[Rfam]
Rfam assigns this 136-nucleotide RNA sequence from Actinocatenispora rupis to the family "c-di-AMP riboswitch aptamer (ydaO/yuaA leader)". Pairs were carried over by alignment from the consensus structure. Taxonomically the source falls in Actinocatenispora (Bacteria, Actinomycetota, Actinomycetes, Micromonosporales).
RNA sequence: CGGGCGACACCGCCGAGUCGUCGUACGACGAGCCGGGGACCCAUGUCCCUCGGGGUGAAUCCGUGGUCCGCCACGGUAGGGCGCUCUUCCCGCCCGAACCCGUCAGCUAACCCGGUAGGCGGUACCGGAAGAAGGG
Number, nucleotide and partner (000 for none) at each position: 001c000002g000003g000004g000005c000006g000007a000008c000009a000010c000011c121012g120013c119014c118015g000016a000017g000018u031019c030020g029021u000022c000023g000024u000025a000026c000027g000028a000029c020030g019031a018032g116033c115034c114035g113036g112037g111038g000039a000040c000041c000042c052043a000044u000045g000046u000047c000048c000049c000050u000051c000052g042053g101054g100055g099056u000057g000058a000059a000060u000061c076062c075063g074064u073065g000066g000067u000068c000069c000070g000071c000072c000073a064074c063075g062076g061077u000078a000079g095080g094081g093082c092083g000084c000085u000086c000087u000088u000089c000090c000091c000092g082093c081094c080095c079096g000097a000098a000099c055100c054101c053102g000103u000104c000105a000106g000107c000108u000109a000110a000111c037112c036113c035114g034115g033116u032117a000118g014119g013120c012121g011122g000123u000124a000125c000126c000127g000128g000129a000130a000131g000132a000133a000134g000135g000136g000